[Rfam]
RNA sequence: AUGAAUGUACGGGGAGAGAGCGCGAAGUAGCGCCGCCGAAGGAGCAAGUAAGUUUUACGAAUCUCUCAGGCAAAAGGACUCGUACGCGACG
Numbered sequence: 001a002u003g004a005a006u007g008u009a010c011g012g013g014g015a016g017a018g019a020g021c022g023c024g025a026a027g028u029a030g031c032g033c034c035g036c037c038g039a040a041g042g043a044g045c046a047a048g049u050a051a052g053u054u055u056u057a058c059g060a061a062u063c064u065c066u067c068a069g070g071c072a073a074a075a076g077g078a079c080u081c082g083u084a085c086g087c088g089a090c091g
Stems, first nucleotide, its partner, number of pairs: 006086008020033004035071003038067002042065003048058002

This 91-nucleotide RNA sequence from Lysinibacillus sp. BF-4 belongs to the Rfam family "Glycine riboswitch aptamer". Its family is annotated with glycine biosynthetic process in the Gene Ontology. Lineage of the source: Bacteria > Bacillota > Bacilli > Caryophanales > Lysinibacillus.